Overview:
c-di-GMP-I riboswitch aptamer: an 84-nucleotide sequence from Clostridium sp. Maddingley MBC34-26. Clan: c-di-GMP_I riboswitch clan. The source organism's lineage runs through Bacteria, Bacillati, Bacillota, Clostridiaceae and Clostridium.
RNA sequence: CAUUGAUAAUAGCACACUUAUCGAAAGGUAAGGUCGCAAAGCCAUGGGUCUAAAGAAUUUUUCAAUGAUUGCCAGGUUGCCAAA
Number, nucleotide and partner (000 for none) at each position: 001c000002a000003u000004u000005g000006a000007u000008a000009a000010u000011a000012g037013c036014a000015c000016a000017c032018u031019u030020a029021u028022c027023g000024a000025a000026a000027g022028g021029u020030a019031a018032g017033g000034u000035c000036g013037c012038a000039a000040a078041g077042c076043c075044a000045u074046g073047g072048g069049u068050c067051u000052a000053a000054a000055g063056a062057a061058u000059u000060u000061u057062u056063c055064a000065a000066u000067g050068a049069u048070u000071g000072c047073c046074a045075g043076g042077u041078u040079g000080c000081c000082a000083a000084a000
Rfam describes the family as follows. GEMM was predicted in a large-scale screen for bacterial structured RNA regulatory elements. Genes associated with GEMM are involved in a diverse array of functions, including chemotaxis regulation, signal transduction, secretion and chitin. The base pairs follow the family's consensus structure, which is taken from published work.